[Rfam]
RNA sequence: UUGUUUGCGGAUGUAGCACCAUCAAGAUUCACAUGCAAAGGGCAAGGUGGUUAAUUGAUGAAAUUAAUGGCCGGCUAUGGCUUUUUGAAGGUGAGAAUCUUGAUGAUGCUGCAUCAACAAUAAA
Numbered sequence: 001u002u003g004u005u006u007g008c009g010g011a012u013g014u015a016g017c018a019c020c021a022u023c024a025a026g027a028u029u030c031a032c033a034u035g036c037a038a039a040g041g042g043c044a045a046g047g048u049g050g051u052u053a054a055u056u057g058a059u060g061a062a063a064u065u066a067a068u069g070g071c072c073g074g075c076u077a078u079g080g081c082u083u084u085u086u087g088a089a090g091g092u093g094a095g096a097a098u099c100u101u102g103a104u105g106a107u108g109c110u111g112c113a114u115c116a117a118c119a120a121u122a123a124a
Base pairs, nucleotide, nucleotide: 010115011114012113013112014111015110016109017108018107020105021104022103023102024101025100026099027098028097029096030095032093033092
Rfam assigns this 124-nucleotide sequence from Anisodus acutangulus to the family "mir-172 microRNA precursor family". mir-172 has been experimentally verified in Arabidopsis thaliana. This family is thought to target mRNAs coding for APETALA2-like transcription factors. Rfam 15.1 lists 2,076 matches to the family in 219 species. A reference for the family is Jones-Rhoades and Bartel (2004), "Computational Identification of Plant MicroRNAs and Their Targets, Including a Stress-Induced miRNA", Mol Cell. The organism belongs to Anisodus, within Eukaryota. A search with the family's covariance model found it, with a score of 89 bits.